[Rfam]
RNA sequence: GUGUGUCUUGCUUCAACAGUGUUUGGACUGCCUC
Numbered sequence: 001g002u003g004u005g006u007c008u009u010g011c012u013u014c015a016a017c018a019g020u021g022u023u024u025g026g027a028c029u030g031c032c033u034c
Stems, first nucleotide, its partner, number of pairs: 001034001003032001005031001007030001010028001012027005017021001
Rfam assigns this 34-nucleotide RNA from Mesocricetus auratus to the family "Iron response element I". The match comes from Rfam's covariance-model search (35 bits). It is annotated as a cis-regulatory element. The source organism's lineage runs through Eukaryota, Craniata, Amniota, Mammalia and Mesocricetus. For this family Rfam cites "Identification of the iron-responsive element for the translational regulation of human ferritin mRNA" (Hentze et al., Science, 1987). Pairs were carried over by alignment from the consensus structure, which is taken from published work.